[Rfam]
RNA sequence: ACUUCACCGGAUAUGACACAACAUCCUGCUGCGAUGUUGUGCGACCUGCAGUGUCAGUCCGGCGAAGC
Numbered sequence: 001a002c003u004u005c006a007c008c009g010g011a012u013a014u015g016a017c018a019c020a021a022c023a024u025c026c027u028g029c030u031g032c033g034a035u036g037u038u039g040u041g042c043g044a045c046c047u048g049c050a051g052u053g054u055c056a057g058u059c060c061g062g063c064g065a066a067g068c
Stems, first nucleotide, its partner, number of pairs: 002067004008061005020038006043055003